RNA: Plastid-rpl16 group II-D1 intron
Organism: Nicotiana tabacum
RNA sequence: AAGAACUUCGAGUUAAUAAAGGCCGAGAAGAUUGACUCAAUAACUAA
Numbered sequence: 001a002a003g004a005a006c007u008u009c010g011a012g013u014u015a016a017u018a019a020a021g022g023c024c025g026a027g028a029a030g031a032u033u034g035a036c037u038c039a040a041u042a043a044c045u046a047a
Stems, first nucleotide, its partner, number of pairs: 008040001010038008